[Rfam]
RNA sequence: CCCAGGGUUAAAACCCUGGGCUUUGAUCUUAUGGGCUUUCAGCCCA
Numbered sequence: 001c002c003c004a005g006g007g008u009u010a011a012a013a014c015c016c017u018g019g020g021c022u023u024u025g026a027u028c029u030u031a032u033g034g035g036c037u038u039u040c041a042g043c044c045c046a
Stems, first nucleotide, its partner, number of pairs: 001020008033045005
Acido-Lenti-1 RNA: a 46-nucleotide RNA from Persicirhabdus sediminis. The family's consensus secondary structure is taken from published work.